RNA sequence: GAUAAGCUCAAAAGUAGCGUUUUGAGAUAAAGCCCGUCUAUGGCAUAACUAAAUGUAGCUGGAAUACAGGUAGACCGUUCCAUAAGUUAGUUAGUAAGUCCCACAA
Number, nucleotide and partner (000 for none) at each position: 001g000002a078003u000004a000005a000006g000007c026008u025009c024010a023011a022012a021013a020014g000015u000016a000017g000018c000019g000020u013021u012022u011023u010024g009025a008026g007027a000028u000029a000030a000031a000032g000033c000034c000035c000036g000037u000038c000039u000040a000041u000042g101043g100044c098045a000046u093047a092048a091049c090050u089051a088052a087053a000054u000055g000056u000057a000058g000059c000060u082061g081062g080063a079064a000065u077066a000067c000068a000069g076070g075071u000072a000073g000074a000075c070076c069077g065078u002079u063080c062081c061082a060083u000084a000085a000086g000087u052088u051089a050090g049091u048092u047093a046094g000095u000096a000097a000098g044099u000100c043101c042102c000103a000104c000105a000106a000
This 106-nucleotide RNA sequence belongs to the Rfam family "cow-rumen-2 RNA". The base pairs follow the family's consensus structure, which is taken from published work.